[Rfam]
RNA sequence: GUCACUUUAAUGAUGUGGAUAGAGUAAAGCUUCCAGGACCUCCAUUUGCUGAUGUAGCGUGAC
Number, nucleotide and partner (000 for none) at each position: 001g063002u062003c061004a060005c059006u000007u000008u000009a000010a000011u000012g000013a000014u000015g049016u048017g047018g046019a045020u044021a000022g042023a041024g040025u000026a000027a000028a000029g000030c037031u036032u000033c000034c000035a000036g031037g030038a000039c000040c024041u023042c022043c000044a020045u019046u018047u017048g016049c015050u000051g000052a000053u000054g000055u000056a000057g000058c000059g005060u004061g003062a002063c001
A member of the RNA family "Selenocysteine insertion sequence 1" from Orycteropus afer, 63 nucleotides long. The family's RNA type in Rfam is cis-regulatory element. The base pairs follow the family's consensus structure, which is taken from published work. It scores 35 bits against the family's covariance model.